Shown here is a 181-nucleotide RNA sequence from Podarcis muralis, a member of the family "Small nucleolar RNA SNORA23". NCBI's taxonomy places the organism under Eukaryota, Eumetazoa, Lacertidae, Lacertinae, Podarcis. Rfam describes the family as follows. The members of this family belong to the H/ACA class of snoRNAs which are thought to guide the sites of modification of uridines to pseudouridines. This family includes human snoRNA ACA23 (SNORA23) and mouse snoMBI-1. ACA23 is predicted to guide the pseudouridylation of residue U3737 and U4331 of 28S rRNA.
RNA sequence: AGUCAUGUGUGUGCAUAGUUUCUAAUCUGUGCCUAGUAAUACAGUCCAAUUGUGUUUUGCAUUUAGACUGUGUUGCUCACAUACAGCAUGUGGUCAAAGAGCAACUUGAGAUCAUAGUACUGGUGCAGUGAUGUCGAAAGACAAGCUUACCACUGACCAGCCUCCAAACUCUCAAACAUGG
Numbered sequence: 001a002g003u004c005a006u007g008u009g010u011g012u013g014c015a016u017a018g019u020u021u022c023u024a025a026u027c028u029g030u031g032c033c034u035a036g037u038a039a040u041a042c043a044g045u046c047c048a049a050u051u052g053u054g055u056u057u058u059g060c061a062u063u064u065a066g067a068c069u070g071u072g073u074u075g076c077u078c079a080c081a082u083a084c085a086g087c088a089u090g091u092g093g094u095c096a097a098a099g100a101g102c103a104a105c106u107u108g109a110g111a112u113c114a115u116a117g118u119a120c121u122g123g124u125g126c127a128g129u130g131a132u133g134u135c136g137a138a139a140g141a142c143a144a145g146c147u148u149a150c151c152a153c154u155g156a157c158c159a160g161c162c163u164c165c166a167a168a169c170u171c172u173c174a175a176a177c178a179u180g181g
Stems, first nucleotide, its partner, number of pairs: 013091004030083002034079001036077001037075006044068003048064001051061003107174005120160005127154004132145001133142003